SAM-I/IV (S-adenosyl methionine) riboswitch aptamer: a 102-nucleotide RNA from Rhodohalobacter barkolensis. The source organism's lineage runs through Bacteria, Pseudomonadati, Balneolota, Balneolales and Rhodohalobacter.
[Rfam]
RNA sequence: AUUCAGCAUCAAGAAACCCCGAUAAUCGGGGUUGCCAACCGACCUGCUCGGGCACGGUGGUUCAAACGAUGUGGGAUCACGGAUCCAAAGCAACGAGUCCCG
Numbered sequence: 001a002u003u004c005a006g007c008a009u010c011a012a013g014a015a016a017c018c019c020c021g022a023u024a025a026u027c028g029g030g031g032u033u034g035c036c037a038a039c040c041g042a043c044c045u046g047c048u049c050g051g052g053c054a055c056g057g058u059g060g061u062u063c064a065a066a067c068g069a070u071g072u073g074g075g076a077u078c079a080c081g082g083a084u085c086c087a088a089a090g091c092a093a094c095g096a097g098u099c100c101c102g
Stems, first nucleotide, its partner, number of pairs: 006072005015033008034061003039057003043052002046098005074086004
Dot-bracket structure: .....(((((....((((((((...))))))))(((..(((.((.[[[[[))..))).)))......))))).((((.....)))).......]]]]]....
Rfam 15.1 lists 567 matches to the family in 508 species.